RNA: SAH (S-adenosyl-L-homocysteine) riboswitch aptamer
Organism: Herbaspirillum seropedicae
RNA sequence: CGCUGCAAGGAGCGUUGCGACAGGGACAUCCCCUGCCAGGCUUGAAGCGGUGAACAGGCGCACGUCGCCUGGCAACCGCGCUCACGUUAC
Numbered sequence: 001c002g003c004u005g006c007a008a009g010g011a012g013c014g015u016u017g018c019g020a021c022a023g024g025g026a027c028a029u030c031c032c033c034u035g036c037c038a039g040g041c042u043u044g045a046a047g048c049g050g051u052g053a054a055c056a057g058g059c060g061c062a063c064g065u066c067g068c069c070u071g072g073c074a075a076c077c078g079c080g081c082u083c084a085c086g087u088u089a090c
Stems, first nucleotide, its partner, number of pairs: 002048003006044003021035005